[Rfam]
Description:
Shown here is an 81-nucleotide RNA from Phocoena sinus, a member of the family "mir-30 microRNA precursor family". Rfam links the family to the GO terms gene silencing by miRNA and RISC complex. Rfam's curators write: This family consists of the mammalian microRNA (miRNA) precursor mir-30a. Animal miRNAs are transcribed as ~70nt precursors and subsequently processed by the Dicer enzyme to give a ~22nt product. In this case the mature sequence comes from both the 3' (miR-30) and 5' (mir-97-6) arms of the precursor. The extents of the hairpin precursors are not generally known and are estimated based on hairpin prediction. The products are thought to have regulatory roles through complementarity to mRNA. The involvement of Dicer in miRNA processing suggests a relationship with the phenomenon of RNA interference. miRNAs are numbered based on the sequence of the mature RNA. The family has 175 seed sequences and 3,879 matches in Rfam 15.1. Pairs were carried over by alignment from the consensus structure, which was predicted with PFOLD. For this family Rfam cites "miRNPs: a novel class of ribonucleoproteins containing numerous microRNAs" (Mourelatos et al., Genes Dev, 2002).
RNA sequence: CCAGGGGAUGAAAACAUCAUCAUCUCUUAGCUGUAUAUUGAAAGUAUACAGCUAAGAGAUGAUGAUGUUUUCAUCCCCUGG
Numbered sequence: 001c002c003a004g005g006g007g008a009u010g011a012a013a014a015c016a017u018c019a020u021c022a023u024c025u026c027u028u029a030g031c032u033g034u035a036u037a038u039u040g041a042a043a044g045u046a047u048a049c050a051g052c053u054a055a056g057a058g059a060u061g062a063u064g065a066u067g068u069u070u071u072c073a074u075c076c077c078c079u080g081g
Base pairs, nucleotide, nucleotide: 002080003079004078005077006076008074009073010072011071012070013069014068015067016066017065018064019063020062023059024058025057026056027055028054029053030052031051032050